Shown here is a 54-nucleotide sequence from Salmo salar, a member of the family "UnaL2 LINE 3' element".

RNA sequence: AUGACUCAAAUUUGUAAGUCGCUCUGGAUAAGAGCGUCUGCUAAAUGACUAAAA
Numbered sequence: 001a002u003g004a005c006u007c008a009a010a011u012u013u014g015u016a017a018g019u020c021g022c023u024c025u026g027g028a029u030a031a032g033a034g035c036g037u038c039u040g041c042u043a044a045a046u047g048a049c050u051a052a053a054a
Stems, first nucleotide, its partner, number of pairs: 013043001014041003020036006
Gene Ontology term of the family: transposition, RNA-mediated. From the family's description: The eel long interspersed element (LINE) UnaL2 and its partner short interspersed element (SINE) share a conserved 3' tail containing a stem-loop that is critical for their retrotransposition. Presumably, the first step of retrotransposition is the recognition of their 3' tails by UnaL2-encoded reverse transcriptase. The solution structure of a 17-nucleotide RNA derived from the 3' tail of UnaL2 was determined by NMR. Rfam classes the family as a cis-regulatory element.